RNA sequence: GACUUCAGAUUUAACUUCUCAUUUUCUGGUUCCUUCUAAUGAGUAUGCUUAACUUGGUAGAAGGAACCAGAAAAUGAGAAGUUGAGUAGGAACUC
Numbered sequence: 001g002a003c004u005u006c007a008g009a010u011u012u013a014a015c016u017u018c019u020c021a022u023u024u025u026c027u028g029g030u031u032c033c034u035u036c037u038a039a040u041g042a043g044u045a046u047g048c049u050u051a052a053c054u055u056g057g058u059a060g061a062a063g064g065a066a067c068c069a070g071a072a073a074a075u076g077a078g079a080a081g082u083u084g085a086g087u088a089g090g091a092a093c094u095c
Base pairs, nucleotide, nucleotide: 001095002094004092005091006090013083014082015081016080017079018078019077020076021075022074023073024072025071026070027069028068029067030066031065032064033063034062035061036060037059038058042054043053044052
The record is a 95-nucleotide sequence from Homo sapiens, which matches "mir-3914 microRNA precursor family" in Rfam. Pairs were carried over by alignment from the consensus structure, which was predicted with RNAalifold. Rfam links the family to the GO terms RISC complex and miRNA-mediated post-transcriptional gene silencing.